[Rfam]
RNA sequence: CUUGCUAUUCCGUUAGCAAGACCUACUAUCCCCGAAGCGGGCCGCAAGGGCCGUGAGGGAGCGGAUAGGACAAGGUAGCCCACCCGAAAGGGAGAAGCCGGAACCGUGAGGGGACGGCGAAGCUGUCAGCACAAUACGGUUUGGGAG
Numbered sequence: 001c002u003u004g005c006u007a008u009u010c011c012g013u014u015a016g017c018a019a020g021a022c023c024u025a026c027u028a029u030c031c032c033c034g035a036a037g038c039g040g041g042c043c044g045c046a047a048g049g050g051c052c053g054u055g056a057g058g059g060a061g062c063g064g065a066u067a068g069g070a071c072a073a074g075g076u077a078g079c080c081c082a083c084c085c086g087a088a089a090g091g092g093a094g095a096a097g098c099c100g101g102a103a104c105c106g107u108g109a110g111g112g113g114a115c116g117g118c119g120a121a122g123c124u125g126u127c128a129g130c131a132c133a134a135u136a137c138g139g140u141u142u143g144g145g146a147g
Base pairs, nucleotide, nucleotide: 002019003018004017005016006015007014027067028066029065030064031063032059033058037054038053039052040051042049043048081094083092084091085090097118098117099116100115104111105110122140123139124138125137126136